Annotation:
Shown here is a 95-nucleotide RNA from Nyssa sinensis, a member of the family "MIR535 microRNA precursor family". It scores 64 bits against the family's covariance model. A reference for the family is Zeng et al. (2010), "Conservation and divergence of microRNAs and their functions in Euphorbiaceous plants", Nucleic Acids Res. Pairs were carried over by alignment from the consensus structure, which was predicted with RNAalifold. Gene Ontology terms of the family: miRNA-mediated post-transcriptional gene silencing and RISC complex. NCBI's taxonomy places the organism under Eukaryota, Spermatophyta, Pentapetalae, asterids, Nyssa.
RNA sequence: AUCAUUACUUUAUAACAAGAGAAAGCACGCUUGUCAACAUUCAUGCACAGGACAUGAUUGUGCACAAGCAUGCUCUCUCUCAUUGUCAUACAAUU
Numbered sequence: 001a002u003c004a005u006u007a008c009u010u011u012a013u014a015a016c017a018a019g020a021g022a023a024a025g026c027a028c029g030c031u032u033g034u035c036a037a038c039a040u041u042c043a044u045g046c047a048c049a050g051g052a053c054a055u056g057a058u059u060g061u062g063c064a065c066a067a068g069c070a071u072g073c074u075c076u077c078u079c080u081c082a083u084u085g086u087c088a089u090a091c092a093a094u095u
Base pairs, nucleotide, nucleotide: 010088012086013085014084020078021077025073026072027071029069030068031067032066033065034064